[Rfam]
RNA sequence: CCGGCCUUCCUUGGGGAGUAGCCUGCCGUCACCCGUUGACGGCGCGCUGGUCAACAUUCUUGGCAACCUGCCAUGGCCAGCGCAUCCAACCGGAUUGGUGAGACCAACGACAUUCCUGCGCCGAAGCCGGGCCGCGGGGUCAUGUCGUUGACUCAUGCCCGGCUGGAGU
Number, nucleotide and partner (000 for none) at each position: 001c000002c000003g000004g000005c000006c000007u000008u000009c000010c000011u000012u000013g000014g000015g000016g000017a000018g000019u000020a000021g000022c000023c000024u000025g000026c042027c041028g040029u000030c000031a000032c000033c000034c000035g000036u000037u000038g000039a000040c028041g027042g026043c000044g083045c082046g081047c080048u079049g078050g077051u076052c075053a074054a000055c000056a000057u000058u000059c000060u000061u073062g072063g071064c070065a069066a000067c000068c000069u065070g064071c063072c062073a061074u053075g052076g051077c050078c049079a048080g047081c046082g045083c044084a000085u000086c000087c000088a000089a169090c168091c000092g000093g000094a000095u000096u000097g000098g000099u000100g000101a000102g000103a000104c000105c000106a000107a000108c000109g000110a000111c000112a000113u000114u000115c000116c000117u000118g000119c000120g000121c000122c000123g000124a000125a000126g000127c000128c000129g000130g000131g000132c000133c000134g000135c000136g000137g000138g000139g000140u000141c000142a000143u000144g000145u000146c000147g000148u000149u000150g000151a000152c000153u000154c000155a000156u000157g000158c000159c000160c000161g000162g000163c000164u000165g000166g000167a000168g090169u089

Manganese Mn2+ riboswitch aptamer (yybP-ykoY): a 169-nucleotide RNA sequence from Pseudomonas aeruginosa. Taxonomically the source falls in Pseudomonas aeruginosa (Bacteria, Pseudomonadati, Gammaproteobacteria, Pseudomonadales).